RNA: raiA RNA
Organism: Coriobacteriaceae bacterium EMTCatB1
RNA sequence: UCCAUCCGGGUCUGUGGUUGCGGGCGCUUCGGCGCCCUAGUCCAGGGUAGGCGCGGCCGAAAGGACCCACGUAAGCCGGAGGCCAUGCCUCCGUGUGAGCAUGGCGCGCCUUAGGGGUAAGUCGCACCGUCCGCUUCGGCGGGCGAGAGGGCCGGUAGUGAGAUAGCAUCAAGCGGAAGCCCCAGUGCGCGAGUGUGGGGCCAAAGACCAGGUCAGCCGGAUGGA
Numbered sequence: 001u002c003c004a005u006c007c008g009g010g011u012c013u014g015u016g017g018u019u020g021c022g023g024g025c026g027c028u029u030c031g032g033c034g035c036c037c038u039a040g041u042c043c044a045g046g047g048u049a050g051g052c053g054c055g056g057c058c059g060a061a062a063g064g065a066c067c068c069a070c071g072u073a074a075g076c077c078g079g080a081g082g083c084c085a086u087g088c089c090u091c092c093g094u095g096u097g098a099g100c101a102u103g104g105c106g107c108g109c110c111u112u113a114g115g116g117g118u119a120a121g122u123c124g125c126a127c128c129g130u131c132c133g134c135u136u137c138g139g140c141g142g143g144c145g146a147g148a149g150g151g152c153c154g155g156u157a158g159u160g161a162g163a164u165a166g167c168a169u170c171a172a173g174c175g176g177a178a179g180c181c182c183c184a185g186u187g188c189g190c191g192a193g194u195g196u197g198g199g200g201c202c203a204a205a206g207a208c209c210a211g212g213u214c215a216g217c218c219g220g221a222u223g224g225a
Stems, first nucleotide, its partner, number of pairs: 001225009012216003015210005044196001046194001047057001049111007066104002074096001077093006102203001123189005128145007149182004158174002164168001